[Rfam]
RNA sequence: CCGCAGCUAAUUAAGCCGGCCGUGACCCCCCCCAUAACCCAUGGGGUCCCGGCGUGCACUGGCUGCGCACAGAAACGCCCCCCCCGGCUGUGUAGGGCGCCCCGCUCACCCCCCUUCCCCACAGCGGGGCGCCCCAAGGGGCCGGGGGUACAGCU
Numbered sequence: 001c002c003g004c005a006g007c008u009a010a011u012u013a014a015g016c017c018g019g020c021c022g023u024g025a026c027c028c029c030c031c032c033c034a035u036a037a038c039c040c041a042u043g044g045g046g047u048c049c050c051g052g053c054g055u056g057c058a059c060u061g062g063c064u065g066c067g068c069a070c071a072g073a074a075a076c077g078c079c080c081c082c083c084c085c086g087g088c089u090g091u092g093u094a095g096g097g098c099g100c101c102c103c104g105c106u107c108a109c110c111c112c113c114c115u116u117c118c119c120c121a122c123a124g125c126g127g128g129g130c131g132c133c134c135c136a137a138g139g140g141g142c143c144g145g146g147g148g149u150a151c152a153g154c155u
Stems, first nucleotide, its partner, number of pairs: 003057003019053004025047004086143003098131009